[Rfam]
RNA sequence: AGCAUUCCAGAUAAGAAUGGGUGUUGUUGAUCAGGGUCCAAAACUGGUCGAUGAAGCUAAUUUGAGACACAGGUUUUGCUUCUAUCACCAUAAAUGCAUUCCAGUGUGACAAGGAGACCUGAAACAUUU
Numbered sequence: 001a002g003c004a005u006u007c008c009a010g011a012u013a014a015g016a017a018u019g020g021g022u023g024u025u026g027u028u029g030a031u032c033a034g035g036g037u038c039c040a041a042a043a044c045u046g047g048u049c050g051a052u053g054a055a056g057c058u059a060a061u062u063u064g065a066g067a068c069a070c071a072g073g074u075u076u077u078g079c080u081u082c083u084a085u086c087a088c089c090a091u092a093a094a095u096g097c098a099u100u101c102c103a104g105u106g107u108g109a110c111a112a113g114g115a116g117a118c119c120u121g122a123a124a125c126a127u128u129u
Stems, first nucleotide, its partner, number of pairs: 003053003018040005024034001070121004083108002086106003
RNA: Small nucleolar RNA SNORA1
Organism: Dipodomys ordii